[Rfam]
RNA sequence: AUUUGGCUUAGUUAAGAGGCAGAAAUGGAUUCGAAAAUCAGAGAAAUGGGGUUCCCCAUGUUUCUGGUGGAUUAAACUCGGGCCUCUUGAAAGGGACUCUUGGGUUUUCUUUCUUCUUCCCGUUGUCCCACAAGCAGCCCUGGACAUUU
Numbered sequence: 001a002u003u004u005g006g007c008u009u010a011g012u013u014a015a016g017a018g019g020c021a022g023a024a025a026u027g028g029a030u031u032c033g034a035a036a037a038u039c040a041g042a043g044a045a046a047u048g049g050g051g052u053u054c055c056c057c058a059u060g061u062u063u064c065u066g067g068u069g070g071a072u073u074a075a076a077c078u079c080g081g082g083c084c085u086c087u088u089g090a091a092a093g094g095g096a097c098u099c100u101u102g103g104g105u106u107u108u109c110u111u112u113c114u115u116c117u118u119c120c121c122g123u124u125g126u127c128c129c130a131c132a133a134g135c136a137g138c139c140c141u142g143g144a145c146a147u148u149u
Stems, first nucleotide, its partner, number of pairs: 004021002007018003037068008077143002080140004086134004093129005100122001

The record is a 149-nucleotide RNA from Hibiscus syriacus, which matches "Small nucleolar RNA U19" in Rfam.
The source organism's lineage runs through Eukaryota, Spermatophyta, rosids, Malvales and Hibiscus.
A search with the family's covariance model found it, with a score of 58 bits.
Rfam 15.1 lists 421 matches to the family in 201 species.
The literature on the family includes a 2002 paper in Curr Biol by Marker et al., "Experimental RNomics: identification of 140 candidates for small non-messenger RNAs in the plant Arabidopsis thaliana".